RNA sequence: GCUGGGCAUGGUGGCACGUGCCUGUAAGCCCUGCUCCUGGGGCAGCUGAGAUCACUGGAUCGCUUGAGGCCAGGGGUUCUGGGCUGCAGUGUGCUAUGUCGAUUGGGUGUCCGCACUAAGUUCAGCAUCAAUAUGGUGAUCCCUGGGGAGCUUGGGGUUACCAGGUUGCCUAAGGAGGGGUGAACCGGCCCAGGCUGGAAACAGAGCAGGUCAAAGCUCCUGUGCUGAUCAGUAGUGGGAUUGCACCUGUGAAUAGCCACUGCAGUGUAGCCUGGGCAAGACAGUGAGACGUGGUCUCCU
Numbered sequence: 001g002c003u004g005g006g007c008a009u010g011g012u013g014g015c016a017c018g019u020g021c022c023u024g025u026a027a028g029c030c031c032u033g034c035u036c037c038u039g040g041g042g043c044a045g046c047u048g049a050g051a052u053c054a055c056u057g058g059a060u061c062g063c064u065u066g067a068g069g070c071c072a073g074g075g076g077u078u079c080u081g082g083g084c085u086g087c088a089g090u091g092u093g094c095u096a097u098g099u100c101g102a103u104u105g106g107g108u109g110u111c112c113g114c115a116c117u118a119a120g121u122u123c124a125g126c127a128u129c130a131a132u133a134u135g136g137u138g139a140u141c142c143c144u145g146g147g148g149a150g151c152u153u154g155g156g157g158u159u160a161c162c163a164g165g166u167u168g169c170c171u172a173a174g175g176a177g178g179g180g181u182g183a184a185c186c187g188g189c190c191c192a193g194g195c196u197g198g199a200a201a202c203a204g205a206g207c208a209g210g211u212c213a214a215a216g217c218u219c220c221u222g223u224g225c226u227g228a229u230c231a232g233u234a235g236u237g238g239g240a241u242u243g244c245a246c247c248u249g250u251g252a253a254u255a256g257c258c259a260c261u262g263c264a265g266u267g268u269a270g271c272c273u274g275g276g277c278a279a280g281a282c283a284g285u286g287a288g289a290c291g292u293g294g295u296c297u298c299c300u
Base pairs, nucleotide, nucleotide: 001046002045003044004023005022006021007020008019009018010017028043029042030041048298049297050296051295052294053293054292055291060287061286062285063284064283068277070275071274072273073272074271079270080269081268083266084265085264086263087262088261089260090259091258093257094256095255096254097253099251104249105248106247107246108245109244110243111239112238114237115236116235117234118233120230122228123227124226125225126224127223128222129168130167131166132165134163135162136161137160138159139158140157141156142155143154145152146151169175170174176221177220178219179218180217181216187212188211189210190209195204196203197202
Metazoan signal recognition particle RNA: a 300-nucleotide RNA from Pelusios castaneus.